[Rfam]
Background: Rfam assigns this 93-nucleotide RNA to the family "L2-Alphaproteobacteria ribosomal protein leader". By type it is a cis-regulatory leader.

RNA sequence: CGGGACCUUGCGAGGGCCCUUUACCCGAACCGGGCUCUAACCCGGUCACAACACAGGCGGGGCGACCCGUCGCAAGCUAACGGAAGACAGAAA
Numbered sequence: 001c002g003g004g005a006c007c008u009u010g011c012g013a014g015g016g017c018c019c020u021u022u023a024c025c026c027g028a029a030c031c032g033g034g035c036u037c038u039a040a041c042c043c044g045g046u047c048a049c050a051a052c053a054c055a056g057g058c059g060g061g062g063c064g065a066c067c068c069g070u071c072g073c074a075a076g077c078u079a080a081c082g083g084a085a086g087a088c089a090g091a092a093a
Stems, first nucleotide, its partner, number of pairs: 002019003006016003031069003041062002